[Rfam]
RNA sequence: CAUCAUAUUUUUCCACAGCUUUCUUGAACUUAGUGCUCAGGUGAGGAUAAUGAUUUUUGUUAAAAUGUUUUGUCUGAGCAAAUCUGUGUACAAAGCUCAAGAAAGCUGUGGGAAAAUAUGGCAG
Numbered sequence: 001c002a003u004c005a006u007a008u009u010u011u012u013c014c015a016c017a018g019c020u021u022u023c024u025u026g027a028a029c030u031u032a033g034u035g036c037u038c039a040g041g042u043g044a045g046g047a048u049a050a051u052g053a054u055u056u057u058u059g060u061u062a063a064a065a066u067g068u069u070u071u072g073u074c075u076g077a078g079c080a081a082a083u084c085u086g087u088g089u090a091c092a093a094a095g096c097u098c099a100a101g102a103a104a105g106c107u108g109u110g111g112g113a114a115a116a117u118a119u120g121g122c123a124g
Stems, first nucleotide, its partner, number of pairs: 003121005013111003017107006024100004029095003033091004